[Rfam]
Small nucleolar RNA SNORA84: a 131-nucleotide RNA from Cettia cetti. The family has 28 seed sequences and 757 matches in Rfam 15.1. The family's consensus secondary structure was predicted with WAR.

RNA sequence: GCCCCGUGGUUGCUGGGCUCUGCUGUGCCGUGCAGUGCCCGGUGCUGAGGGGGGCCCACAGUGAGGCUGUGAGCCACGCAGGGAGGCUGUGAGCCCUGAGCAGCCUCCACAGCCCUCUCACAGGCACAGCC
Numbered sequence: 001g002c003c004c005c006g007u008g009g010u011u012g013c014u015g016g017g018c019u020c021u022g023c024u025g026u027g028c029c030g031u032g033c034a035g036u037g038c039c040c041g042g043u044g045c046u047g048a049g050g051g052g053g054g055c056c057c058a059c060a061g062u063g064a065g066g067c068u069g070u071g072a073g074c075c076a077c078g079c080a081g082g083g084a085g086g087c088u089g090u091g092a093g094c095c096c097u098g099a100g101c102a103g104c105c106u107c108c109a110c111a112g113c114c115c116u117c118u119c120a121c122a123g124g125c126a127c128a129g130c131c
Stems, first nucleotide, its partner, number of pairs: 001056001003054002007047002011044007020035004067123001069121005078113002082108002085105006

Lineage of the source: Eukaryota > Euteleostomi > Dipnotetrapodomorpha > Sylvioidea > Cettia. Gene Ontology terms of the family: nucleolus and RNA processing. Rfam classes the family as an H/ACA-box small nucleolar RNA.